[Rfam]
Source information: Rfam assigns this 132-nucleotide RNA from Octodon degus to the family "Small nucleolar RNA SNORA8". From the family's description: ACA8 is a member of the H/ACA class of snoRNA that guide the sites of modification of uridines to pseudouridines. By type it is an H/ACA-box small nucleolar RNA. The family has 5 seed sequences and 1,490 matches in Rfam 15.1.
RNA sequence: CCCACUAUGUAAAAGACACUGCUAGAGUUUAUUACUCUGGGUGUUUUCAAAGGGCAGUGCAAUAGAAAUUCACCAUUUGUCAUCAUUGGUUUUUUUGUGGUUGUCAAACCUGAUAUGACUAAUGAUGUGGUC
Numbered sequence: 001c002c003c004a005c006u007a008u009g010u011a012a013a014a015g016a017c018a019c020u021g022c023u024a025g026a027g028u029u030u031a032u033u034a035c036u037c038u039g040g041g042u043g044u045u046u047u048c049a050a051a052g053g054g055c056a057g058u059g060c061a062a063u064a065g066a067a068a069u070u071c072a073c074c075a076u077u078u079g080u081c082a083u084c085a086u087u088g089g090u091u092u093u094u095u096u097g098u099g100g101u102u103g104u105c106a107a108a109c110c111u112g113a114u115a116u117g118a119c120u121a122a123u124g125a126u127g128u129g130g131u132c
Stems, first nucleotide, its partner, number of pairs: 003059004017054001019052002021046001022041001023039005063121003068116002070113003079101005